epsC RNA: a 114-nucleotide RNA from Halalkalibacter okhensis. The family's RNA type in Rfam is cis-regulatory element.

RNA sequence: UGGCAAUGUCUCCUUGCCAUUAUCGACGGAGGCACUCGAUCACGCUGUGGGUUUCUUAAAACCUUAGACGCAUUAGUCGUCAUUGGUGUGGUGUGAGGAGGGGUUAGAUGCCUC
Dot-bracket structure: [[[[..(((((((..]]]]........)))))))((((((((((((..((((((....))))))..((((.......))))...)))))))).))))..(((((.....)))))